[Rfam]
RNA sequence: GCGAGACACCCCGACCGGCGGCACGGCGUGACCGAUAAACUGGCGGGGAACCGUCCCGGGUGCAGCUCCCGGACGGUUCACCCAUGAUCAGCCAGCAGCCGCUGCAACCCCAGGGAG
Dot-bracket structure: ...............................................((((((..(((((.......))))).)))))).............((((....)))).............
Description:
Rfam assigns this 117-nucleotide RNA from Streptomyces sp. SPB78 to the family "Streptomyces-metK RNA". It is annotated as a small RNA. Taxonomically the source falls in Streptomyces (Bacteria, Bacillati, Kitasatosporales, Streptomycetaceae). Pairs were carried over by alignment from the consensus structure, which is taken from published work. Rfam's curators put it in the seed alignment.